[Rfam]
RNA: Bacterial small signal recognition particle RNA
Organism: Anaerotruncus sp. AF02-27
RNA sequence: AUGCGGGUCCUGUGCGACAGAGCGCCGUGAACCAUGUCAGGCGGGGAACCGAGCAGCAUUAAGCGGUUUGUGAUGUGCGCCGCAGGUAAUCUGCAUGUC
Number, nucleotide and partner (000 for none) at each position: 001a000002u000003g000004c093005g092006g091007g090008u089009c086010c085011u084012g083013u082014g081015c077016g000017a076018c075019a074020g000021a000022g071023c000024g067025c066026c065027g064028u063029g000030a000031a000032c000033c000034a059035u058036g057037u056038c000039a000040g000041g000042c051043g050044g049045g000046g000047a000048a000049c044050c043051g042052a000053g000054c000055a000056g037057c036058a035059u034060u000061a000062a000063g028064c027065g026066g025067u024068u000069u000070g000071u022072g000073a000074u019075g018076u017077g015078c000079g000080c000081c014082g013083c012084a011085g010086g009087u000088a000089a008090u007091c006092u005093g004094c000095a000096u000097g000098u000099c000